Background
mir-374 microRNA precursor family: a 72-nucleotide RNA sequence from Fukomys damarensis. Pairs were carried over by alignment from the consensus structure, which was predicted with PFOLD. The organism belongs to Fukomys, within Eukaryota. Gene Ontology terms of the family: miRNA-mediated post-transcriptional gene silencing and RISC complex.
[Rfam]
RNA sequence: ACAUUGGCCUUUGUUAGUACAACCUGAUAGGUGUUACAGCAUUUACCAGAUAGUAUUGUAAUUGUCUGUGUA
Numbered sequence: 001a002c003a004u005u006g007g008c009c010u011u012u013g014u015u016a017g018u019a020c021a022a023c024c025u026g027a028u029a030g031g032u033g034u035u036a037c038a039g040c041a042u043u044u045a046c047c048a049g050a051u052a053g054u055a056u057u058g059u060a061a062u063u064g065u066c067u068g069u070g071u072a
Stems, first nucleotide, its partner, number of pairs: 013059001015058006022051001024049003028045007
The family has 28 seed sequences and 440 matches in Rfam 15.1.
On this family, see Lui et al., Cancer Res 2007: "Patterns of known and novel small RNAs in human cervical cancer".